RNA sequence: CCAAAGGCUCUUUUCAGAGCCACCCACCUAUCUCAGUAAAAGAGCU
Numbered sequence: 001c002c003a004a005a006g007g008c009u010c011u012u013u014u015c016a017g018a019g020c021c022a023c024c025c026a027c028c029u030a031u032c033u034c035a036g037u038a039a040a041a042g043a044g045c046u
Base pairs, nucleotide, nucleotide: 006021007020008019009018010017011016
About this RNA
This 46-nucleotide RNA from Microcebus murinus belongs to the Rfam family "Histone 3' UTR stem-loop". The family's consensus secondary structure is taken from published work. The family's RNA type in Rfam is cis-regulatory element.